[Rfam]
RNA sequence: UGGCAUGCUGGAUGGGCAUUCUGCUUCUCUUUAAAGAGCAUGGAUUUAUCCAUACCAUGUGACAUGAAUGAAAUGAGGUUUCAGGGCUGCCAACCUCUUGGUUAAGGUUCUGUGUAGUAUAUUUCUCCUACAAUA
Numbered sequence: 001u002g003g004c005a006u007g008c009u010g011g012a013u014g015g016g017c018a019u020u021c022u023g024c025u026u027c028u029c030u031u032u033a034a035a036g037a038g039c040a041u042g043g044a045u046u047u048a049u050c051c052a053u054a055c056c057a058u059g060u061g062a063c064a065u066g067a068a069u070g071a072a073a074u075g076a077g078g079u080u081u082c083a084g085g086g087c088u089g090c091c092a093a094c095c096u097c098u099u100g101g102u103u104a105a106g107g108u109u110c111u112g113u114g115u116a117g118u119a120u121a122u123u124u125c126u127c128c129u130a131c132a133a134u135a
Stems, first nucleotide, its partner, number of pairs: 003060005017042003021038002075127003086115002090112001092109005
Small nucleolar RNA U109: a 135-nucleotide RNA from Nomascus leucogenys. Rfam 15.1 lists 1,405 matches to the family in 622 species. A reference for the family is Gu et al. (2005), "A novel experimental approach for systematic identification of box H/ACA snoRNAs from eukaryotes", Nucleic Acids Res. It is annotated as an H/ACA-box small nucleolar RNA.